[Rfam]
RNA: U1 spliceosomal RNA
RNA sequence: AUACUUACCUGGACGGGGUUGACGGGCGAUCAAAAAGGCUCGUGGCCUAAAUCAACGAUCUCCAUUGCACGUUGGAGGGGCGUUGGUUUACCAUCUCCCCAAGAGGGAGAGUGGACGUUAUAAUUUGUGGCAGAGGGGGUACGCGCGUGCGCGGCCCCUG
Numbered sequence: 001a002u003a004c005u006u007a008c009c010u011g012g013a014c015g016g017g018g019u020u021g022a023c024g025g026g027c028g029a030u031c032a033a034a035a036a037g038g039c040u041c042g043u044g045g046c047c048u049a050a051a052u053c054a055a056c057g058a059u060c061u062c063c064a065u066u067g068c069a070c071g072u073u074g075g076a077g078g079g080g081c082g083u084u085g086g087u088u089u090a091c092c093a094u095c096u097c098c099c100c101a102a103g104a105g106g107g108a109g110a111g112u113g114g115a116c117g118u119u120a121u122a123a124u125u126u127g128u129g130g131c132a133g134a135g136g137g138g139g140u141a142c143g144c145g146c147g148u149g150c151g152c153g154g155c156c157c158c159u160g
Base pairs, nucleotide, nucleotide: 012119013118014117015116016048017047018046019045020044021043023042024041025040026039027038049089050088051087053086055083056082057081059079060078061077062075063074091114092113093112094110095109096108098106099105135159136158137157138156139155142153143152144151145150